This 94-nucleotide RNA sequence from Paenibacillus methanolicus belongs to the Rfam family "c-di-GMP-I riboswitch aptamer". Gene Ontology term of the family: cyclic-di-GMP binding. The source organism's lineage runs through Bacteria, Bacillati, Bacillota, Caryophanales and Paenibacillus. The base pairs follow the family's consensus structure, which is taken from published work.
RNA sequence: ACUGCUUUAGGGCAAACCUGGCGAAAGUCAGCGGCGCAAAACCAGAGGGUCUAAAGUCCUACAUAUUCAAGGACCAUGAUAGCCGGUUGCGAUU
Numbered sequence: 001a002c003u004g005c006u007u008u009a010g011g012g013c014a015a016a017c018c019u020g021g022c023g024a025a026a027g028u029c030a031g032c033g034g035c036g037c038a039a040a041a042c043c044a045g046a047g048g049g050u051c052u053a054a055a056g057u058c059c060u061a062c063a064u065a066u067u068c069a070a071g072g073a074c075c076a077u078g079a080u081a082g083c084c085g086g087u088u089g090c091g092a093u094u
Base pairs, nucleotide, nucleotide: 012037013036018031019030020029021028022027040088041087042086043085047084048083049080050079051078056074057073058072059071